This 144-nucleotide RNA sequence from Castor canadensis belongs to the Rfam family "Small nucleolar RNA SNORA48". Pairs were carried over by alignment from the consensus structure, which was predicted with RNAalifold. Rfam describes the family as follows. The snoRNA ACA 48 has been identified to guide pseudouridylation of the residue U3797 in the 28S rRNA subunit. NCBI's taxonomy places the organism under Eukaryota, Opisthokonta, Mammalia, Rodentia, Castor. Its family is annotated with RNA processing and nucleolus in the Gene Ontology. The family has 24 seed sequences and 2,109 matches in Rfam 15.1. The family is grouped with related families in Rfam's "SNORA48 clan". By type it is an H/ACA-box small nucleolar RNA. The match comes from Rfam's covariance-model search (68 bits).

RNA sequence: ACCCCCUGGGAAUGGGCAAAGAGACACCUCAUUGGUGGUGUUGCUCUUGUAUCGGUCAGGGGAAGAGUAGAUGACAGUCUUUUGUUCAUCCUAGCUUGAUGCCUCGGUCAGUGGCCAAAGCUGUUUCAUGCCUAGGGCACAAAA
Numbered sequence: 001a002c003c004c005c006c007u008g009g010g011a012a013u014g015g016g017c018a019a020a021g022a023g024a025c026a027c028c029u030c031a032u033u034g035g036u037g038g039u040g041u042u043g044c045u046c047u048u049g050u051a052u053c054g055g056u057c058a059g060g061g062g063a064a065g066a067g068u069a070g071a072u073g074a075c076a077g078u079c080u081u082u083u084g085u086u087c088a089u090c091c092u093a094g095c096u097u098g099a100u101g102c103c104u105c106g107g108u109c110a111g112u113g114g115c116c117a118a119a120g121c122u123g124u125u126u127c128a129u130g131c132c133u134a135g136g137g138c139a140c141a142a143a144a
Stems, first nucleotide, its partner, number of pairs: 003062006013054003019048003023042006083139005098132001100130001104128001106126001109123002